Shown here is a 119-nucleotide RNA sequence from Cnephaeus nilssonii, a member of the family "Small nucleolar RNA SNORA61". A search with the family's covariance model found it, with a score of 113 bits. Pairs were carried over by alignment from the consensus structure, which was predicted with PFOLD. The family has 25 seed sequences and 881 matches in Rfam 15.1. It is annotated as an H/ACA-box small nucleolar RNA.
RNA sequence: AGCCUCGGUUCCCUUUCCCAUUGGAUCUGAAUACUGAUCUUGGUGGUCGUAAAGGAGGAAAAGUAAUACUGAAGCUGGCCUCACAAUGCUUGUAAUCUGUGGGCUAGUCUCAAACAAGG
Numbered sequence: 001a002g003c004c005u006c007g008g009u010u011c012c013c014u015u016u017c018c019c020a021u022u023g024g025a026u027c028u029g030a031a032u033a034c035u036g037a038u039c040u041u042g043g044u045g046g047u048c049g050u051a052a053a054g055g056a057g058g059a060a061a062a063g064u065a066a067u068a069c070u071g072a073a074g075c076u077g078g079c080c081u082c083a084c085a086a087u088g089c090u091u092g093u094a095a096u097c098u099g100u101g102g103g104c105u106a107g108u109c110u111c112a113a114a115c116a117a118g119g
Base pairs, nucleotide, nucleotide: 003058004057005056006055018046019045020044021043022042024039025038026037027036075107076106077105078104079103080102081101